RNA sequence: AUUGUCCCUAGAGGAGUUGCAGAUGUGGCCGUUGUGUCACAUUUGUGUCAUUAGGUGGCAGAGAGAAAAAAGGCCAUGUAUACAUUCAGUGUUCUGACCUAUGAAUGUUUGAAUGAUUAAUAGUCUGACACA
Numbered sequence: 001a002u003u004g005u006c007c008c009u010a011g012a013g014g015a016g017u018u019g020c021a022g023a024u025g026u027g028g029c030c031g032u033u034g035u036g037u038c039a040c041a042u043u044u045g046u047g048u049c050a051u052u053a054g055g056u057g058g059c060a061g062a063g064a065g066a067a068a069a070a071a072g073g074c075c076a077u078g079u080a081u082a083c084a085u086u087c088a089g090u091g092u093u094c095u096g097a098c099c100u101a102u103g104a105a106u107g108u109u110u111g112a113a114u115g116a117u118u119a120a121u122a123g124u125c126u127g128a129c130a131c132a
Base pairs, nucleotide, nucleotide: 002061003060004059005058006057007055008054009053010052011051013049014048019046020045021044022043024041025040026039027038028037029036071126072125073124074123076121077120083115084114086112087111088110089109090107091106092105093104094103
Rfam assigns this 132-nucleotide RNA from Otolemur garnettii to the family "Small nucleolar RNA SNORA17".
The family is grouped with related families in Rfam's "SNORA17 clan".
snoRNA ACA 17 belongs to the H/ACA family of snoRNAs and is predicted to guide pseudouridylation of the 28S rRNA at positions U4659 and U4598. It shares the same host gene together with ACA43. NB This family has a high threshold value to exclude a large number of closely related sequences that do not appear to have conserved H and ACA boxes, and may be pseudogenes.
The family's consensus secondary structure was predicted with RNAalifold.
For this family Rfam cites "Mapping to nucleotide resolution of pseudouridine residues in large subunit ribosomal RNAs from representative eukaryotes, prokaryotes, archaebacteria, mitochondria and chloroplasts" (Ofengand and Bakin, J Mol Biol, 1997).
It is one of the family's seed sequences.
Gene Ontology terms of the family: nucleolus and RNA processing.
Lineage of the source: Eukaryota > Opisthokonta > Mammalia > Boreoeutheria > Otolemur.